The record is an 84-nucleotide RNA from Romboutsia weinsteinii, which matches "c-di-GMP-I riboswitch aptamer" in Rfam. Rfam links the family to the GO term cyclic-di-GMP binding.
RNA sequence: AAACUAAAUAAGCAAAGCUAGAGAAAUCUAGUGACGCAAAGCUAUAGGGGCUAAGGUCAGAGACUAUGCCAGCCAGUUGCCAAA
Number, nucleotide and partner (000 for none) at each position: 001a000002a000003a000004c000005u000006a000007a000008a000009u000010a000011a000012g037013c036014a000015a000016a000017g032018c031019u030020a029021g028022a027023g000024a000025a000026a000027u022028c021029u020030a019031g018032u017033g000034a000035c000036g013037c012038a000039a000040a078041g077042c076043u075044a000045u000046a000047g074048g073049g070050g069051c068052u000053a000054a000055g000056g064057u063058c062059a000060g000061a000062g058063a057064c056065u000066a000067u000068g051069c050070c049071a000072g000073c048074c047075a043076g042077u041078u040079g000080c000081c000082a000083a000084a000